[Rfam]
RNA: nhaA-I RNA
Organism: Propionivibrio dicarboxylicus
RNA sequence: GGGUGUCCGUGACUCACAGCGCUUUCCGCUGAUUUUCUUCGUCAUCACGGGCAGGUAGUCGUGCUGGUCGGGCCGCCGCA
Numbered sequence: 001g002g003g004u005g006u007c008c009g010u011g012a013c014u015c016a017c018a019g020c021g022c023u024u025u026c027c028g029c030u031g032a033u034u035u036u037c038u039u040c041g042u043c044a045u046c047a048c049g050g051g052c053a054g055g056u057a058g059u060c061g062u063g064c065u066g067g068u069c070g071g072g073c074c075g076c077c078g079c080a
Stems, first nucleotide, its partner, number of pairs: 005052008062080003066077003